[Rfam]
Rfam assigns this 30-nucleotide sequence from Clostridium senegalense to the family "CRISPR RNA direct repeat element".
A search with the family's covariance model found it, with a score of 49 bits.
Rfam 15.1 lists 1,947 matches to the family in 60 species.
Lineage of the source: Bacteria > Bacillati > Bacillota > Eubacteriales > Clostridium.
The family's consensus secondary structure was predicted with WAR.
Rfam links the family to the GO term defense response.
RNA sequence: AUUUAAAUACAUCUUAUGUUAAGGUUUAAC
Numbered sequence: 001a002u003u004u005a006a007a008u009a010c011a012u013c014u015u016a017u018g019u020u021a022a023g024g025u026u027u028a029a030c
Base pairs, nucleotide, nucleotide: 009019010018011017012016